Shown here is a 55-nucleotide RNA sequence from Oncorhynchus kisutch, a member of the family "U7 small nuclear RNA". About the family: Animal histone pre-mRNAs are spliced by a different mechanism than nuclear pre-mRNAs and self-splicing introns. This processing involves the U7 snRNP, which contains only one RNA species: U7. The 5' end of U7 RNA is thought to base-pair to a conserved spacer element downstream of the cleavage site in histone pre-mRNA. This family contains a number of annotated U7 pseudogenes. Pairs were carried over by alignment from the consensus structure, which was predicted with PFOLD.
RNA sequence: GAAAAUUUGCUCUUUUAUUAUUUGACCAGUAGGUUUCCUUAAGGAGAAAGCCCCC
Numbered sequence: 001g002a003a004a005a006u007u008u009g010c011u012c013u014u015u016u017a018u019u020a021u022u023u024g025a026c027c028a029g030u031a032g033g034u035u036u037c038c039u040u041a042a043g044g045a046g047a048a049a050g051c052c053c054c055c
Base pairs, nucleotide, nucleotide: 032052033051034050035049036048038046039045040044